[Rfam]
The family of this 124-nucleotide RNA sequence from Barrientosiimonas humi is "TPP riboswitch aptamer (THI element)".
Taxonomically the source falls in Barrientosiimonas (Bacteria, Bacillati, Micrococcales, Dermacoccaceae).
The match comes from Rfam's covariance-model search (59 bits).
From the family's description: Vitamin B(1) in its active form thiamin pyrophosphate (TPP) is an essential coenzyme that is synthesised by coupling of pyrimidine and thiazole moieties in bacteria. The previously detected thiamin-regulatory element, thi box was extended, resulting in a new, highly conserved RNA secondary structure, the THI element, which is widely distributed in eubacteria and also occurs in some archaea. Analysis of operon structures identified a large number of new candidate thiamin-regulated genes, mostly transporters, in various prokaryotic organisms. The THI element is a riboswitch that directly binds to TPP to regulate gene expression through a variety of mechanisms in archaea, bacteria and eukaryotes. through a variety of mechanisms in archaea, bacteria and eukaryotes. Tandem TPP riboswitches have been reported where both TPP riboswitches respond independently to TPP. The structure of TPP riboswitch has been reported for Escherichia coli and Arabidopsis thaliana.
RNA sequence: ACACACGACGCGGGGUGCUGUGCCCGGGACGGAGAGGCGAGAGCCUCGGCUCGGCACGGCUGAGAUCACACCCGUCGCACCUGAUCUAGGUCGUACUAGCGAAGGGACGUCAACGAUGUCGACC
Numbered sequence: 001a002c003a004c005a006c007g008a009c010g011c012g013g014g015g016u017g018c019u020g021u022g023c024c025c026g027g028g029a030c031g032g033a034g035a036g037g038c039g040a041g042a043g044c045c046u047c048g049g050c051u052c053g054g055c056a057c058g059g060c061u062g063a064g065a066u067c068a069c070a071c072c073c074g075u076c077g078c079a080c081c082u083g084a085u086c087u088a089g090g091u092c093g094u095a096c097u098a099g100c101g102a103a104g105g106g107a108c109g110u111c112a113a114c115g116a117u118g119u120c121g122a123c124c
Base pairs, nucleotide, nucleotide: 007111008110009109010108011074012073013072014071016068017060018059019058020057021056022055023054024053080105081104082103086099087098088097089096